Record summary
Rfam assigns this 84-nucleotide RNA from Hevea brasiliensis to the family "Small nucleolar RNA SNORD25". On this family, see Tycowski et al., Nature 1996: "A mammalian gene with introns instead of exons generating stable RNA products". Rfam links the family to the GO terms nucleolus and RNA processing. The base pairs follow the family's consensus structure, which was predicted with PFOLD.
[Rfam]
RNA sequence: UUGAGCAAUGAUGAACCUACAGACCUGUAAUGAUUUGCGGUGAUGAUCGCAAAUUUUUAUGAACAUCUAAGGGACUGAGUUCUC
Numbered sequence: 001u002u003g004a005g006c007a008a009u010g011a012u013g014a015a016c017c018u019a020c021a022g023a024c025c026u027g028u029a030a031u032g033a034u035u036u037g038c039g040g041u042g043a044u045g046a047u048c049g050c051a052a053a054u055u056u057u058u059a060u061g062a063a064c065a066u067c068u069a070a071g072g073g074a075c076u077g078a079g080u081u082c083u084c
Stems, first nucleotide, its partner, number of pairs: 003082004